[Rfam]
RNA sequence: CUGCACAAUGCUAACCCUGGGCUUGUCGGACGGAUCUCGGUACCUUGUGAUGAAGGAAACCCCCAAUGUUGUGUAGAUCUACACUGCCGUUCAGUGUUGCAGUUCGCGACACUACGCGUAGAUGUGUGACAUGUGUCAGAGUAAUGGAUACAUAC
Numbered sequence: 001c002u003g004c005a006c007a008a009u010g011c012u013a014a015c016c017c018u019g020g021g022c023u024u025g026u027c028g029g030a031c032g033g034a035u036c037u038c039g040g041u042a043c044c045u046u047g048u049g050a051u052g053a054a055g056g057a058a059a060c061c062c063c064c065a066a067u068g069u070u071g072u073g074u075a076g077a078u079c080u081a082c083a084c085u086g087c088c089g090u091u092c093a094g095u096g097u098u099g100c101a102g103u104u105c106g107c108g109a110c111a112c113u114a115c116g117c118g119u120a121g122a123u124g125u126g127u128g129a130c131a132u133g134u135g136u137c138a139g140a141g142u143a144a145u146g147g148a149u150a151c152a153u154a155c
Stems, first nucleotide, its partner, number of pairs: 004073005011068001019062003023058001024056001026053003087147005095138002098135004102130002106125003
Description:
A member of the RNA family "small nucleolar RNA snoR134" from Triticum turgidum, 155 nucleotides long. On this family, see Chen and Wu, Nucleic Acids Res 2009: "Mining small RNA sequencing data: a new approach to identify small nucleolar RNAs in Arabidopsis". Lineage of the source: Eukaryota > commelinids > Triticeae > Triticum > Triticum turgidum. The family's consensus secondary structure was predicted with RNAalifold. The family's RNA type in Rfam is H/ACA-box small nucleolar RNA.